Shown here is an 87-nucleotide RNA from Gossypium aridum, a member of the family "MIR7486 microRNA precursor family". Taxonomically the source falls in Gossypium (Eukaryota, Embryophyta, Tracheophyta, Malvaceae). The family has 9 seed sequences and 10,132 matches in Rfam 15.1. The base pairs follow the family's consensus structure, which was predicted with RNAalifold.
[Rfam]
RNA sequence: CACGUCAGCACGCUUUGUUGACGUUGUAACAAAUCGCGCCUACGUAAGCGCGAUUUGUGUCGACAUCAGUAAAGCGCGUUGACAUGG
Numbered sequence: 001c002a003c004g005u006c007a008g009c010a011c012g013c014u015u016u017g018u019u020g021a022c023g024u025u026g027u028a029a030c031a032a033a034u035c036g037c038g039c040c041u042a043c044g045u046a047a048g049c050g051c052g053a054u055u056u057g058u059g060u061c062g063a064c065a066u067c068a069g070u071a072a073a074g075c076g077c078g079u080u081g082a083c084a085u086g087g
Base pairs, nucleotide, nucleotide: 001086002085004083005082006081007080008079009078011076012075013074014073015072016071017070018069019068020067021066023064024063025062026061029058030057031056032055033054034053035052036051037050038049041046